The record is a 71-nucleotide RNA sequence from Chrysochloris asiatica, which matches "mir-302 microRNA precursor family" in Rfam. Taxonomically the source falls in Chrysochloris (Eukaryota, Teleostomi, Afrosoricida, Chrysochloridae).

[Rfam]
RNA sequence: CUUCCACUUUAACAAGGAGGUCCUUUCUACUAGCUUUAAAAUAAGUAAGUGCUUCCUUGUUUUAGUAGAAG
Numbered sequence: 001c002u003u004c005c006a007c008u009u010u011a012a013c014a015a016g017g018a019g020g021u022c023c024u025u026u027c028u029a030c031u032a033g034c035u036u037u038a039a040a041a042u043a044a045g046u047a048a049g050u051g052c053u054u055c056c057u058u059g060u061u062u063u064a065g066u067a068g069a070a071g
Base pairs, nucleotide, nucleotide: 001071002070003069006066007065008064011061012060013059014058015057016056017055018054019053020052021051023049024048025047027045028044